The record is a 96-nucleotide sequence from Vannielia litorea, which matches "Rhodo-rpoB RNA" in Rfam.
RNA sequence: GGAUCGGGCGCUCACCGGUGGGACGGUGGGCAGGUAUGGAUCCCGGACGCACCUUCAUUCGUGAGCCGCCCUCCCGGUGCCCCGGCGGGAUGUGCG
Dot-bracket structure: (((((....((((((((......)))))))).......))))).......................(((.((((((.........))))).).)))
Record summary: The organism belongs to Vannielia, within Bacteria.